[Rfam]
RNA: ZMP/ZTP riboswitch aptamer (pfl RNA motif)
Organism: Modestobacter sp. VKM Ac-2676
RNA sequence: GAACCGGGCCGUGACUGGCGCAGACAGGUGGACGACCACCGGGGAGCGGCUCCGAAGCCGUGCCGCGCGCCUGGGCUCCCCGU
Numbered sequence: 001g002a003a004c005c006g007g008g009c010c011g012u013g014a015c016u017g018g019c020g021c022a023g024a025c026a027g028g029u030g031g032a033c034g035a036c037c038a039c040c041g042g043g044g045a046g047c048g049g050c051u052c053c054g055a056a057g058c059c060g061u062g063c064c065g066c067g068c069g070c071c072u073g074g075g076c077u078c079c080c081c082g083u
Stems, first nucleotide, its partner, number of pairs: 004054001006052007015043002017071005028039004060078001062076003